[Rfam]
RNA sequence: GUAGAUGGCUAGGGAGAGGAUGGUUUCGUUUGAGUUAGGCAUUGCCAACGAGAAGCUAUCCCCAGAUUAGUCACUCCCUCCUACACCGUUGGCUUUUUAGGGCCGGCUCUUAACAGAACGGCCACUCGGGG
Numbered sequence: 001g002u003a004g005a006u007g008g009c010u011a012g013g014g015a016g017a018g019g020a021u022g023g024u025u026u027c028g029u030u031u032g033a034g035u036u037a038g039g040c041a042u043u044g045c046c047a048a049c050g051a052g053a054a055g056c057u058a059u060c061c062c063c064a065g066a067u068u069a070g071u072c073a074c075u076c077c078c079u080c081c082u083a084c085a086c087c088g089u090u091g092g093c094u095u096u097u098u099a100g101g102g103c104c105g106g107c108u109c110u111u112a113a114c115a116g117a118a119c120g121g122c123c124a125c126u127c128g129g130g131g
Base pairs, nucleotide, nucleotide: 003075004074006073007072008071009070010069018061019060020059021058022057024055025054026053027052034049035048036047089106090105091104092103093102094101095100
Description: Shown here is a 131-nucleotide sequence from Sulfurovum sp. bin170, a member of the family "purD RNA motif". Rfam links the family to the GO term regulation of gene expression. A reference for the family is Weinberg et al. (2007), "Identification of 22 candidate structured RNAs in bacteria using the CMfinder comparative genomics pipeline", Nucleic Acids Res. A search with the family's covariance model found it, with a score of 71 bits. NCBI's taxonomy places the organism under Bacteria, Pseudomonadati, Campylobacterota, Campylobacterales, Sulfurovum. The base pairs follow the family's consensus structure, which is taken from published work.